[Rfam]
A member of the RNA family "Aggregatibacter sRNA 22" from Lonepinella koalarum, 101 nucleotides long. A reference for the family is Oogai et al. (2017), "Small RNA repertoires and their intraspecies variation in Aggregatibacter actinomycetemcomitans", DNA Res. It is annotated as a small RNA.
RNA sequence: AUGCGGUCACAAAAUUCCGAGAGGAAUUUUGAACGUUCGCUUGCGAACGGGGGCUAAGCCCCGAACAAUCCCCGUCAGGGAUUGUGAGUAAAUUUUUUGAU
Dot-bracket structure: .........((((((((......))))))))..((((((....))))))(((((...)))))..((((((((.....))))))))..(.((...)).)...
Numbered sequence: 001a002u003g004c005g006g007u008c009a010c011a012a013a014a015u016u017c018c019g020a021g022a023g024g025a026a027u028u029u030u031g032a033a034c035g036u037u038c039g040c041u042u043g044c045g046a047a048c049g050g051g052g053g054c055u056a057a058g059c060c061c062c063g064a065a066c067a068a069u070c071c072c073c074g075u076c077a078g079g080g081a082u083u084g085u086g087a088g089u090a091a092a093u094u095u096u097u098u099g100a101u
Stems, first nucleotide, its partner, number of pairs: 010031008034049006050062005065085008088098001090096002